[Rfam]
RNA sequence: CUGUUUGCCGAUGCAGCAUCAUCAAGAUUCACAGUCCUCCUUCGAGAGGGCUUUUGCUUCGAUUGAGCUUAAUUUGUGGUUCAUUCAAAUUAACGCUUAUGAGCUGAAGUUAGUCAGGCAAUCGAUCUUGCUUAUAUUGCCCCGAUCUCAAGUAUUGACCGAUUCAAGCCCUAGUGAAAGGAGGGAAAAAGAAAAAAAGAAAAGAAAAGAAAGAAACAGAGCAAAAGCCCCAUUUGAUAUGGGAAUCUUGAUGAUGCUGCAACGGCAAUGAU
Number, nucleotide and partner (000 for none) at each position: 001c000002u000003g000004u000005u000006u000007g000008c000009c000010g263011a000012u261013g260014c259015a258016g257017c256018a255019u254020c253021a252022u251023c250024a249025a248026g247027a246028u245029u244030c243031a000032c241033a240034g000035u000036c000037c000038u000039c000040c000041u000042u000043c000044g000045a000046g000047a000048g000049g000050g000051c000052u000053u000054u000055u000056g000057c000058u000059u000060c000061g000062a000063u000064u000065g000066a000067g000068c000069u000070u000071a000072a000073u000074u000075u000076g000077u000078g000079g000080u000081u000082c000083a000084u000085u000086c000087a000088a000089a000090u000091u000092a000093a000094c000095g000096c000097u000098u000099a000100u000101g000102a000103g000104c000105u000106g000107a000108a000109g000110u000111u000112a000113g000114u000115c000116a000117g000118g000119c000120a000121a000122u000123c000124g000125a000126u000127c000128u000129u000130g000131c000132u000133u000134a000135u000136a000137u000138u000139g000140c000141c000142c000143c000144g000145a000146u000147c000148u000149c000150a000151a000152g000153u000154a000155u000156u000157g000158a000159c000160c000161g000162a000163u000164u000165c000166a000167a000168g000169c000170c000171c000172u000173a000174g000175u000176g000177a000178a000179a000180g000181g000182a000183g000184g000185g000186a000187a000188a000189a000190a000191g000192a000193a000194a000195a000196a000197a000198a000199g000200a000201a000202a000203a000204g000205a000206a000207a000208a000209g000210a000211a000212a000213g000214a000215a000216a000217c000218a000219g000220a000221g000222c000223a000224a000225a000226a000227g000228c000229c000230c000231c000232a000233u000234u000235u000236g000237a000238u000239a000240u033241g032242g000243g030244a029245a028246u027247c026248u025249u024250g023251a022252u021253g020254a019255u018256g017257c016258u015259g014260c013261a012262a000263c010264g000265g000266c000267a000268a000269u000270g000271a000272u000
mir-172 microRNA precursor family: a 272-nucleotide sequence from Punica granatum. mir-172 has been experimentally verified in Arabidopsis thaliana. This family is thought to target mRNAs coding for APETALA2-like transcription factors. Pairs were carried over by alignment from the consensus structure, which was predicted with PFOLD. It scores 74 bits against the family's covariance model. The organism belongs to Punica, within Eukaryota.